This 103-nucleotide sequence from Citrus unshiu belongs to the Rfam family "MIR473 microRNA precursor family". Gene Ontology terms of the family: RISC complex and miRNA-mediated post-transcriptional gene silencing.
RNA sequence: GUUGCUCACUCUCCCUCAAGGGCUUCUGGCGUUAAUUAAUGACAAUUAUUAAUGCUUGCAGCUGCCUGCCAGGCCUGAGGCCGUUGGGGAGAGUGGACAAAAG
Numbered sequence: 001g002u003u004g005c006u007c008a009c010u011c012u013c014c015c016u017c018a019a020g021g022g023c024u025u026c027u028g029g030c031g032u033u034a035a036u037u038a039a040u041g042a043c044a045a046u047u048a049u050u051a052a053u054g055c056u057u058g059c060a061g062c063u064g065c066c067u068g069c070c071a072g073g074c075c076u077g078a079g080g081c082c083g084u085u086g087g088g089g090a091g092a093g094u095g096g097a098c099a100a101a102a103g
Stems, first nucleotide, its partner, number of pairs: 006096010017086003021082006
Annotation:
For this family Rfam cites "Identification of grapevine microRNAs and their targets using high-throughput sequencing and degradome analysis" (Pantaleo et al., Plant J, 2010).